[Rfam]
RNA sequence: GCUGCGCCUAUCCCGAGGCUGAUCACCGACGGAGAACACCGGGUACCUUCACCCGGCUGGCGUGACACCCCGUUUCAGGA
Numbered sequence: 001g002c003u004g005c006g007c008c009u010a011u012c013c014c015g016a017g018g019c020u021g022a023u024c025a026c027c028g029a030c031g032g033a034g035a036a037c038a039c040c041g042g043g044u045a046c047c048u049u050c051a052c053c054c055g056g057c058u059g060g061c062g063u064g065a066c067a068c069c070c071c072g073u074u075u076c077a078g079g080a
Stems, first nucleotide, its partner, number of pairs: 001066001003064006011033003039056005047079003051075001
RNA: int-alpA RNA